RNA: Guanidine-I riboswitch aptamer
RNA sequence: AAAACAGUUUUCUAGGGUUCCGCAGUAUUCAUUUGAACUGGCCUGGUCCGAGAGAAAACGCACGUAAACGUGUACACGGAAGGAUAAAAGCCUGGGAGAU
Numbered sequence: 001a002a003a004a005c006a007g008u009u010u011u012c013u014a015g016g017g018u019u020c021c022g023c024a025g026u027a028u029u030c031a032u033u034u035g036a037a038c039u040g041g042c043c044u045g046g047u048c049c050g051a052g053a054g055a056a057a058a059c060g061c062a063c064g065u066a067a068a069c070g071u072g073u074a075c076a077c078g079g080a081a082g083g084a085u086a087a088a089a090g091c092c093u094g095g096g097a098g099a100u
Base pairs, nucleotide, nucleotide: 007059008058009057010056011055012054015049016048020046021045022043023040024039025038026037028035060073061072062071063070064069075095077098081093082092083091